[Rfam]
mir-1000 microRNA precursor family: an 81-nucleotide sequence from Ceratitis capitata. The organism belongs to Ceratitis, within Eukaryota. The match comes from Rfam's covariance-model search (78 bits).
RNA sequence: GCCAGUGAUAUUGUCCUGUCACAGCAGUACUGUUCUUCUCGAUUUGAUAGUCUACUGCUGAGCCGGGGCAUUAACAUUGUC
Numbered sequence: 001g002c003c004a005g006u007g008a009u010a011u012u013g014u015c016c017u018g019u020c021a022c023a024g025c026a027g028u029a030c031u032g033u034u035c036u037u038c039u040c041g042a043u044u045u046g047a048u049a050g051u052c053u054a055c056u057g058c059u060g061a062g063c064c065g066g067g068g069c070a071u072u073a074a075c076a077u078u079g080u081c
Base pairs, nucleotide, nucleotide: 003079004078005077006076012070013069014068015067016066017065018064022060023059024058025057026056027055028054029053